A member of the RNA family "c-di-GMP-I riboswitch aptamer" from Syntrophobotulus glycolicus, 90 nucleotides long.
Lineage of the source: Bacteria > Bacillota > Eubacteriales > Syntrophobotulus > Syntrophobotulus glycolicus.
[Rfam]
RNA sequence: UAAAGCCAAGGGCAAACCCAUCAAAAGAUGGGGACGCAAAGCCAUAGGGUCUAAGGUGCUUUACUGCGCUAUGAUAGCCUGGCUGCCAAA
Numbered sequence: 001u002a003a004a005g006c007c008a009a010g011g012g013c014a015a016a017c018c019c020a021u022c023a024a025a026a027g028a029u030g031g032g033g034a035c036g037c038a039a040a041g042c043c044a045u046a047g048g049g050u051c052u053a054a055g056g057u058g059c060u061u062u063a064c065u066g067c068g069c070u071a072u073g074a075u076a077g078c079c080u081g082g083c084u085g086c087c088a089a090a
Stems, first nucleotide, its partner, number of pairs: 012037002017032006040084004046080003049075003056069004